The record is a 75-nucleotide RNA from Allobosea sp. Leaf344, which matches "Makes More Granules Regulator RNA (mmgR)" in Rfam. The family has 87 seed sequences and 1,791 matches in Rfam 15.1. Rfam classes the family as a small RNA.
[Rfam]
RNA sequence: CUGAGCCGCCCUCCUUGGGCGUUUCCUCCCUAGACUUCGGGCCACGUUUCGACGUGGCCCUUUUUCUUGGGCCGG
Numbered sequence: 001c002u003g004a005g006c007c008g009c010c011c012u013c014c015u016u017g018g019g020c021g022u023u024u025c026c027u028c029c030c031u032a033g034a035c036u037u038c039g040g041g042c043c044a045c046g047u048u049u050c051g052a053c054g055u056g057g058c059c060c061u062u063u064u065u066c067u068u069g070g071g072c073c074g075g
Stems, first nucleotide, its partner, number of pairs: 008020004039060009